RNA sequence: UGCACAGUAUGUGCUGGCUGAGGUAAGUCCGACGUGCUCAAUUGCACUGCCCGAUUUUGGGGGCUUGGGAUUAC
Number, nucleotide and partner (000 for none) at each position: 001u000002g014003c013004a012005c011006a010007g000008u000009a000010u006011g005012u004013g003014c002015u000016g000017g000018c000019u000020g000021a000022g000023g074024u073025a072026a071027g000028u000029c069030c068031g000032a000033c000034g047035u046036g045037c044038u000039c000040a000041a000042u000043u000044g037045c036046a035047c034048u000049g064050c063051c062052c061053g000054a000055u000056u000057u000058u000059g000060g000061g052062g051063g050064c049065u000066u000067g000068g030069g029070a000071u026072u025073a024074c023